[Rfam]
RNA sequence: ACUGUGGAGUGUACAAGAACUUGUGAGUAGACAGAACUUCGGUUCGUCAAAAGCAUACACUAUGAAGCAGUAA
Numbered sequence: 001a002c003u004g005u006g007g008a009g010u011g012u013a014c015a016a017g018a019a020c021u022u023g024u025g026a027g028u029a030g031a032c033a034g035a036a037c038u039u040c041g042g043u044u045c046g047u048c049a050a051a052a053g054c055a056u057a058c059a060c061u062a063u064g065a066a067g068c069a070g071u072a073a
Stems, first nucleotide, its partner, number of pairs: 001071005009060005022055003030048003034045002
RNA: RAGATH-18 RNA
Organism: Clostridiales bacterium KLE1615